[Rfam]
RNA sequence: GUCUUAAGGGCAUCUGGUGAAUGCCUUGGCAUGCACAGGCGAUGAAGGACGUGAUACGCUGCGAUAAGCCACGGGGAGGUGCGAAUAACCUUCGAUCCGUGGAUUUCCGAAUGGGGAAACCCACCUUUAUAACAUAACUAAACAGCUCUUUCAGAGAUUGUUGGGGUAUAUCUUUAGCGAUUCUGUUUCUGUUUGGGUUUUAUGUUAUAUUUAAAAGGUAUUUUUAUCUGAAAAAAAUAGGAUGAAAAGGCGAACGCAGGGAACUGAAACAUCUAAGUACCUGUAGGAAAGGACAUCAAAAGAGACUCCGUUAGUAGUGGCGAGCGAAAGCGGAUCAGGCCAGUGACUGAAAUGAAGAAAGCAGAAUGGGUUGGAAAACCCUGCCAUAGAGAGUGAUAGCCUCGUAAGCGUAAGCUGAUUUUUAGUUUUUGAGUAAGGCGGGACACGCGAAAUCCUGUCUGAACAUGGGUCGACCACGAUCCAAGCCUAAGUACUCGUGCAUGACCGAUAGUGAACCAGUACCGUGAGGGAAAGGUGAAAAGCACCCCGACAAGGGGAGUGAAAGAGAACCUGAAACCGGAUGCCUACAAA
Numbered sequence: 001g002u003c004u005u006a007a008g009g010g011c012a013u014c015u016g017g018u019g020a021a022u023g024c025c026u027u028g029g030c031a032u033g034c035a036c037a038g039g040c041g042a043u044g045a046a047g048g049a050c051g052u053g054a055u056a057c058g059c060u061g062c063g064a065u066a067a068g069c070c071a072c073g074g075g076g077a078g079g080u081g082c083g084a085a086u087a088a089c090c091u092u093c094g095a096u097c098c099g100u101g102g103a104u105u106u107c108c109g110a111a112u113g114g115g116g117a118a119a120c121c122c123a124c125c126u127u128u129a130u131a132a133c134a135u136a137a138c139u140a141a142a143c144a145g146c147u148c149u150u151u152c153a154g155a156g157a158u159u160g161u162u163g164g165g166g167u168a169u170a171u172c173u174u175u176a177g178c179g180a181u182u183c184u185g186u187u188u189c190u191g192u193u194u195g196g197g198u199u200u201u202a203u204g205u206u207a208u209a210u211u212u213a214a215a216a217g218g219u220a221u222u223u224u225u226a227u228c229u230g231a232a233a234a235a236a237a238u239a240g241g242a243u244g245a246a247a248a249g250g251c252g253a254a255c256g257c258a259g260g261g262a263a264c265u266g267a268a269a270c271a272u273c274u275a276a277g278u279a280c281c282u283g284u285a286g287g288a289a290a291g292g293a294c295a296u297c298a299a300a301a302g303a304g305a306c307u308c309c310g311u312u313a314g315u316a317g318u319g320g321c322g323a324g325c326g327a328a329a330g331c332g333g334a335u336c337a338g339g340c341c342a343g344u345g346a347c348u349g350a351a352a353u354g355a356a357g358a359a360a361g362c363a364g365a366a367u368g369g370g371u372u373g374g375a376a377a378a379c380c381c382u383g384c385c386a387u388a389g390a391g392a393g394u395g396a397u398a399g400c401c402u403c404g405u406a407a408g409c410g411u412a413a414g415c416u417g418a419u420u421u422u423u424a425g426u427u428u429u430u431g432a433g434u435a436a437g438g439c440g441g442g443a444c445a446c447g448c449g450a451a452a453u454c455c456u457g458u459c460u461g462a463a464c465a466u467g468g469g470u471c472g473a474c475c476a477c478g479a480u481c482c483a484a485g486c487c488u489a490a491g492u493a494c495u496c497g498u499g500c501a502u503g504a505c506c507g508a509u510a511g512u513g514a515a516c517c518a519g520u521a522c523c524g525u526g527a528g529g530g531a532a533a534g535g536u537g538a539a540a541a542g543c544a545c546c547c548c549g550a551c552a553a554g555g556g557g558a559g560u561g562a563a564a565g566a567g568a569a570c571c572u573g574a575a576a577c578c579g580g581a582u583g584c585c586u587a588c589a590a591a
Base pairs, nucleotide, nucleotide: 008586009585010584011583012582013581014580015579016578017577023571024535025534028506029505030503031502032501033500034499035498036497037495038494039251040250047108048107049106050063051062052061069102070101071100072099073098074097075096078090079089080088113122114121115120123219124218125217126216127215128214221248222247223246224245225244226243227242228241229240255286256284257283258282259281260280266273267272296303297302306491307334308333309332310331311330317325318324337488338487339486340485350429351428353424354423355422356421357415361409362408368381369380370379371378385389391403392402393401436460437459438458439457440456441455442454443453467482468481469480470479471478522529523528545557546556547555548554
The record is a 591-nucleotide part of an RNA from Candidatus Tokpelaia sp. JSC161, which matches "Bacterial large subunit ribosomal RNA" in Rfam.
A reference for the family is Yusupov et al. (2001), "Crystal structure of the ribosome at 5.5 A resolution", Science.